RNA: DUF805b RNA
RNA sequence: ACAGAGGAACCUGAAAAUCUGCAAACAGAGUAAGGA
Number, nucleotide and partner (000 for none) at each position: 001a000002c021003a020004g019005a018006g000007g000008a000009a000010c035011c034012u033013g000014a000015a000016a000017a000018u005019c004020u003021g002022c000023a000024a000025a000026c000027a000028g000029a000030g000031u000032a000033a012034g011035g010036a000